[Rfam]
RNA: Eukaryotic large subunit ribosomal RNA, nucleotides 753 to 1057
Organism: Paracyclopina nana
RNA sequence: GAGUUUAACAUGUGCGCGAGCCACUGGGUGAACUAAGCCCAAAGGCGUAGUGAAAGCAAAGGCUGUUUUGUGCAGCUGAGGGAUGAUCCCUUCACGGGGCGCAAUCCCGGCGCUUCGCAUCAACCUCGCUUUGUGCGGAGCAGCAAGAGUGUACACGUUGAGACCCGAAAGAUGGUGAACUAUGCCUGGCCAGGAUGAAGUCAGGGGAAACCCUGAUGGAGGUCCGUAGCGAUUCUGACGUGCAAAUCGAUCGUCGGAGCUGGGUAUAGGGGCGAAAGACUAAUCGAACCAUCUAGUAGCUGGUU
Dot-bracket structure: ....(((((.(((((((..(((..(((((.......)))))..)))...((....))......................(((((...((........))....))))).((((((((....(........)....)))))).))....))))))).)))))..((.(...((((((...((((((((((((.((((...(((((((....)))))))....))))...((((.((.((........))))))))..).))))))))))).((.......))......))))))......).))..
Numbered sequence: 001g002a003g004u005u006u007a008a009c010a011u012g013u014g015c016g017c018g019a020g021c022c023a024c025u026g027g028g029u030g031a032a033c034u035a036a037g038c039c040c041a042a043a044g045g046c047g048u049a050g051u052g053a054a055a056g057c058a059a060a061g062g063c064u065g066u067u068u069u070g071u072g073c074a075g076c077u078g079a080g081g082g083a084u085g086a087u088c089c090c091u092u093c094a095c096g097g098g099g100c101g102c103a104a105u106c107c108c109g110g111c112g113c114u115u116c117g118c119a120u121c122a123a124c125c126u127c128g129c130u131u132u133g134u135g136c137g138g139a140g141c142a143g144c145a146a147g148a149g150u151g152u153a154c155a156c157g158u159u160g161a162g163a164c165c166c167g168a169a170a171g172a173u174g175g176u177g178a179a180c181u182a183u184g185c186c187u188g189g190c191c192a193g194g195a196u197g198a199a200g201u202c203a204g205g206g207g208a209a210a211c212c213c214u215g216a217u218g219g220a221g222g223u224c225c226g227u228a229g230c231g232a233u234u235c236u237g238a239c240g241u242g243c244a245a246a247u248c249g250a251u252c253g254u255c256g257g258a259g260c261u262g263g264g265u266a267u268a269g270g271g272g273c274g275a276a277a278g279a280c281u282a283a284u285c286g287a288a289c290c291a292u293c294u295a296g297u298a299g300c301u302g303g304u305u
Stems, first nucleotide, its partner, number of pairs: 005161005011155007020046003025041005050057002080108005088099002110144002112141006122131001164303002167300001171293006180269011191257001193225004200217007229254004234250002237248002271281002